[Rfam]
RNA sequence: AUAUAUAAGCAGGGGAGCUUUUUGCUGAGAGGAAAAAUUAAUUUUCGACCCUUAACCUGAUGUGGAUAAUGCCAACGUAGGAAGCAUUUAAUGAUGAUUA
Numbered sequence: 001a002u003a004u005a006u007a008a009g010c011a012g013g014g015g016a017g018c019u020u021u022u023u024g025c026u027g028a029g030a031g032g033a034a035a036a037a038u039u040a041a042u043u044u045u046c047g048a049c050c051c052u053u054a055a056c057c058u059g060a061u062g063u064g065g066a067u068a069a070u071g072c073c074a075a076c077g078u079a080g081g082a083a084g085c086a087u088u089u090a091a092u093g094a095u096g097a098u099u100a
Base pairs, nucleotide, nucleotide: 007087009085010084011052012051013050014049017025018024032046033045034044035043036042056081057080058079059078063074064073065072